[Rfam]
RNA sequence: GAAAAUGAUGAACUUCGGCAAAACAAUUUUCUGACAUCUCUUAUGAAUCGUUGUGAUUUAUCUAUGCUUAUUUAACUGAUUUC
Number, nucleotide and partner (000 for none) at each position: 001g083002a082003a081004a000005a000006u000007g000008a000009u000010g000011a000012a000013c000014u000015u000016c000017g000018g000019c000020a000021a000022a000023a000024c000025a000026a000027u000028u000029u000030u000031c000032u000033g000034a000035c000036a000037u000038c000039u000040c000041u000042u000043a054044u053045g052046a051047a000048u000049c000050g000051u046052u045053g044054u043055g000056a000057u000058u000059u000060a000061u000062c000063u000064a000065u000066g000067c000068u000069u000070a000071u000072u000073u000074a000075a000076c000077u000078g000079a000080u000081u003082u002083c001
RNA: Small nucleolar RNA Me28S-Gm3255